[Rfam]
RNA sequence: GGUGGAAGGCCCACCGGGAUCGGCUGUCGGAAGCAGAUUCCAAACCACUUCAUGCUGCUGUGGUAAAGAGCCAUGGUAGUGAGCGAUGAAGUAAAGCGUGAGUGAAAACUCAGCAGGU
Numbered sequence: 001g002g003u004g005g006a007a008g009g010c011c012c013a014c015c016g017g018g019a020u021c022g023g024c025u026g027u028c029g030g031a032a033g034c035a036g037a038u039u040c041c042a043a044a045c046c047a048c049u050u051c052a053u054g055c056u057g058c059u060g061u062g063g064u065a066a067a068g069a070g071c072c073a074u075g076g077u078a079g080u081g082a083g084c085g086a087u088g089a090a091g092u093a094a095a096g097c098g099u100g101a102g103u104g105a106a107a108a109c110u111c112a113g114c115a116g117g118u
Base pairs, nucleotide, nucleotide: 001015002014003013004012005011016041017040018039019038020037021036023034024033025032046117048091049090050089051088052087053086054080055079057077058076059075061073062072063071064070096114097113099112100111101110
RNA: Group II catalytic intron D1-D4-2